[Rfam]
RNA sequence: CUACCCCUCGGAAUGCUCAGGUCCGCCGCAUCUCCUGGGUCCCGUGGGGUUCGGCCGGCACGGAAAUGGACGGAGUGGCCUCCUCGCGGUCCAUUUCCGGCCGGCCACCUU
Numbered sequence: 001c002u003a004c005c006c007c008u009c010g011g012a013a014u015g016c017u018c019a020g021g022u023c024c025g026c027c028g029c030a031u032c033u034c035c036u037g038g039g040u041c042c043c044g045u046g047g048g049g050u051u052c053g054g055c056c057g058g059c060a061c062g063g064a065a066a067u068g069g070a071c072g073g074a075g076u077g078g079c080c081u082c083c084u085c086g087c088g089g090u091c092c093a094u095u096u097c098c099g100g101c102c103g104g105c106c107a108c109c110u111u
Stems, first nucleotide, its partner, number of pairs: 003050005009044002016039006053106007062098002
Dot-bracket structure: ..(((((.((.....((((((............))))))...)).)))))..(((((((..((.................................)).))))))).....
The record is a 111-nucleotide sequence from Alsobacter metallidurans, which matches "EcpR1" in Rfam. The base pairs follow the family's consensus structure, which was predicted with WAR. Rfam describes the family as follows. Perviously named SmelC291, SmrC10, or Sra33. According to its overproduction phenotype it was renamed Elongated Cell Phenotype RNA1. Induced by stress,EcpR1 negatively regulates cell cycle master regulatory genes dnaA and gcrA at post-transcriptional level by base pairing between its strongly conserved GC-rich loop and the target mRNAs. It's regulation is hfq-independent but requires RNase E to regulate dnaA. Gene Ontology terms of the family: mRNA binding, negative regulation of cell cycle and regulation of translation in response to stress. For this family Rfam cites "Deep sequencing uncovers numerous small RNAs on all four replicons of the plant pathogen Agrobacterium tumefaciens" (Wilms et al., RNA Biol, 2012). The source organism's lineage runs through Bacteria, Pseudomonadati, Alphaproteobacteria, Alsobacteraceae and Alsobacter.